RNA: Bacterial large signal recognition particle RNA
Organism: Halothermothrix orenii
RNA sequence: CCGUACUAGACGGGGUGGUAGCGGUGCCCUGUAACCUGCAACCCGCUAUAGCAGGGUCGAGGCCUGGCCGAGGGCUUCCCUUUGCGGGGUCUGCCCCUGGUAAGUGGUGUUGACGAUUGGGUCUUACGCAAUGGAGCUUUACGAACCCCGUCAGGUCCGGGAGGAAGCAGCGGUAAGUAAAUGCCUCCAUGUGCCGUAAGGGUGCCUGGUCCGAGCUAACUGCCAGGGUAACGCCCGGGGAGGAAAGUUCGAAGUCAGGUGUGCGG
Numbered sequence: 001c002c003g004u005a006c007u008a009g010a011c012g013g014g015g016u017g018g019u020a021g022c023g024g025u026g027c028c029c030u031g032u033a034a035c036c037u038g039c040a041a042c043c044c045g046c047u048a049u050a051g052c053a054g055g056g057u058c059g060a061g062g063c064c065u066g067g068c069c070g071a072g073g074g075c076u077u078c079c080c081u082u083u084g085c086g087g088g089g090u091c092u093g094c095c096c097c098u099g100g101u102a103a104g105u106g107g108u109g110u111u112g113a114c115g116a117u118u119g120g121g122u123c124u125u126a127c128g129c130a131a132u133g134g135a136g137c138u139u140u141a142c143g144a145a146c147c148c149c150g151u152c153a154g155g156u157c158c159g160g161g162a163g164g165a166a167g168c169a170g171c172g173g174u175a176a177g178u179a180a181a182u183g184c185c186u187c188c189a190u191g192u193g194c195c196g197u198a199a200g201g202g203u204g205c206c207u208g209g210u211c212c213g214a215g216c217u218a219a220c221u222g223c224c225a226g227g228g229u230a231a232c233g234c235c236c237g238g239g240g241a242g243g244a245a246a247g248u249u250c251g252a253a254g255u256c257a258g259g260u261g262u263g264c265g266g
Base pairs, nucleotide, nucleotide: 001266002265003264004263005262006261009058010057011056012030013029014028015027016026017025019023035055036054037053038052039051063259064258065257066256067255068254072250073249074248075247076246079243080242081241082240083239085237086236087235088234092230093229096227097226098225099224100223101222104220105219106217107216108215115211116210117209118208119207120206121205122204123200124199125198126197127196128195129191130190132189133188134187135186136185138181139180140179141178142177148173149172150171151170156165157164158163